[Rfam]
RNA sequence: GGGUCGGUCGGGCUGGGGCACGAAGCAGGGCUGGGCACGCGUCGCGGCUGGACGAGGCACCGCCACCGCACCCCACACCCGGGGCACCCCCUUCGCGGCCCUCCCCCGCCCCACCCCGCGGCCCUCUCGCUCCCUCCCCCGCGCCCUCUCUCCCCAUCUCCUCCCCGGAGGUGUGGGGGGAAGGGUUGGGCGGAGGGGCGGCGGCCGCGGGGACCCAGCGGAGGGGGCACGGUCCCCCGCGGGGGGUCCCAGGCACCUGGGGGGCCGGCAGCGGCAGCGACUCUGGACGCGAGCCGGGCCCUUCCCGUGGAUCGCCCCAGCUGUGGCGGGUGUCAUGGCCGCCCCCGGGGAGCCCAGCGGGUGCCGGUGCGCCCUGCUCGCUCUGCCCUCACCUGUGUCCGUGGGGGCGGGAAACGGUCGGGCGUUGGCGGGCGGCGGGUGGGGGUUCGUACUCCCGCCUCCACCCCGGUCCGUCUGCCCCCGUUCCCCCCCCUCACUGCGCGGCGGUGGCAGCAGCGGGCCGCGGGCCGGUCCCCCCUGCCGGGUCCGCCCCCAGGGCCGCGGUUCCGUGCAGUGCCUCGCCUCGGCCGGCACGUAGG
Numbered sequence: 001g002g003g004u005c006g007g008u009c010g011g012g013c014u015g016g017g018g019c020a021c022g023a024a025g026c027a028g029g030g031c032u033g034g035g036c037a038c039g040c041g042u043c044g045c046g047g048c049u050g051g052a053c054g055a056g057g058c059a060c061c062g063c064c065a066c067c068g069c070a071c072c073c074c075a076c077a078c079c080c081g082g083g084g085c086a087c088c089c090c091c092u093u094c095g096c097g098g099c100c101c102u103c104c105c106c107c108g109c110c111c112c113a114c115c116c117c118g119c120g121g122c123c124c125u126c127u128c129g130c131u132c133c134c135u136c137c138c139c140c141g142c143g144c145c146c147u148c149u150c151u152c153c154c155c156a157u158c159u160c161c162u163c164c165c166c167g168g169a170g171g172u173g174u175g176g177g178g179g180g181a182a183g184g185g186u187u188g189g190g191c192g193g194a195g196g197g198g199c200g201g202c203g204g205c206c207g208c209g210g211g212g213a214c215c216c217a218g219c220g221g222a223g224g225g226g227g228c229a230c231g232g233u234c235c236c237c238c239g240c241g242g243g244g245g246g247u248c249c250c251a252g253g254c255a256c257c258u259g260g261g262g263g264g265c266c267g268g269c270a271g272c273g274g275c276a277g278c279g280a281c282u283c284u285g286g287a288c289g290c291g292a293g294c295c296g297g298g299c300c301c302u303u304c305c306c307g308u309g310g311a312u313c314g315c316c317c318c319a320g321c322u323g324u325g326g327c328g329g330g331u332g333u334c335a336u337g338g339c340c341g342c343c344c345c346c347g348g349g350g351a352g353c354c355c356a357g358c359g360g361g362u363g364c365c366g367g368u369g370c371g372c373c374c375u376g377c378u379c380g381c382u383c384u385g386c387c388c389u390c391a392c393c394u395g396u397g398u399c400c401g402u403g404g405g406g407g408c409g410g411g412a413a414a415c416g417g418u419c420g421g422g423c424g425u426u427g428g429c430g431g432g433c434g435g436c437g438g439g440u441g442g443g444g445g446u447u448c449g450u451a452c453u454c455c456c457g458c459c460u461c462c463a464c465c466c467c468g469g470u471c472c473g474u475c476u477g478c479c480c481c482c483g484u485u486c487c488c489c490c491c492c493c494u495c496a497c498u499g500c501g502c503g504g505c506g507g508u509g510g511c512a513g514c515a516g517c518g519g520g521c522c523g524c525g526g527g528c529c530g531g532u533c534c535c536c537c538c539u540g541c542c543g544g545g546u547c548c549g550c551c552c553c554c555a556g557g558g559c560c561g562c563g564g565u566u567c568c569g570u571g572c573a574g575u576g577c578c579u580c581g582c583c584u585c586g587g588c589c590g591g592c593a594c595g596u597a598g599g
Base pairs, nucleotide, nucleotide: 003592004591005590006589007588008587009586010585011584012321013320014319016317017316018315019314027302028301029300030299031298032297034295035294036293038291039290040289041288042287043286
The record is a 599-nucleotide part of an RNA from Cercocebus atys, which matches "Eukaryotic large subunit ribosomal RNA" in Rfam. Gene Ontology terms of the family: ribosome and structural constituent of ribosome. The match comes from Rfam's covariance-model search (2262 bits).